[Rfam]
RNA sequence: GAGAGAGGAAAGCAUCAAGGCAGGGAUGAGGCAGAGCAUGAGAUGGGGUCAUCAACACACCAAUGUAGAGAUAGAGAGAGAGAUGUAGAGAGAGAAAGAUAUAGGCCGAUUGCUUGUGAAAGUUUGUUGUUGCCCUUCCCAUGCACUGCCUCUUCCCUGGCUUUCUCUUCUCGUUUCUCU
Numbered sequence: 001g002a003g004a005g006a007g008g009a010a011a012g013c014a015u016c017a018a019g020g021c022a023g024g025g026a027u028g029a030g031g032c033a034g035a036g037c038a039u040g041a042g043a044u045g046g047g048g049u050c051a052u053c054a055a056c057a058c059a060c061c062a063a064u065g066u067a068g069a070g071a072u073a074g075a076g077a078g079a080g081a082g083a084u085g086u087a088g089a090g091a092g093a094g095a096a097a098g099a100u101a102u103a104g105g106c107c108g109a110u111u112g113c114u115u116g117u118g119a120a121a122g123u124u125u126g127u128u129g130u131u132g133c134c135c136u137u138c139c140c141a142u143g144c145a146c147u148g149c150c151u152c153u154u155c156c157c158u159g160g161c162u163u164u165c166u167c168u169u170c171u172c173g174u175u176u177c178u179c180u
Stems, first nucleotide, its partner, number of pairs: 017163003021159006029151006036144005042139001046135004
Dot-bracket structure: ................(((.((((((..((((((.(((((.(...((((..................................................................................))))...)))))).))))))..)))))).))).................
The family of this 180-nucleotide RNA from Dendrobium nobile is "MIR408 microRNA precursor family". The source organism's lineage runs through Eukaryota, Streptophyta, Magnoliopsida, Petrosaviidae and Dendrobium. It scores 86 bits against the family's covariance model.